Shown here is a 93-nucleotide RNA sequence from Tupaia belangeri, a member of the family "mir-568 microRNA precursor family". The source organism's lineage runs through Eukaryota, Euteleostomi, Tetrapoda, Eutheria and Tupaia belangeri. The base pairs follow the family's consensus structure, which was predicted with RNAalifold. Its family is annotated with miRNA-mediated post-transcriptional gene silencing and RISC complex in the Gene Ontology.
RNA sequence: AUAUACACUGUAUUAUGUAUAAAUGUAUACACGUGCCCUACAUAUAUCCACAGAUAUAUAGUGUAUAUAUUAUACAUGGAUACGUGUGUAUAU
Numbered sequence: 001a002u003a004u005a006c007a008c009u010g011u012a013u014u015a016u017g018u019a020u021a022a023a024u025g026u027a028u029a030c031a032c033g034u035g036c037c038c039u040a041c042a043u044a045u046a047u048c049c050a051c052a053g054a055u056a057u058a059u060a061g062u063g064u065a066u067a068u069a070u071u072a073u074a075c076a077u078g079g080a081u082a083c084g085u086g087u088g089u090a091u092a093u
Stems, first nucleotide, its partner, number of pairs: 003087004009082003013078001015077008024069009039056002043052001045050001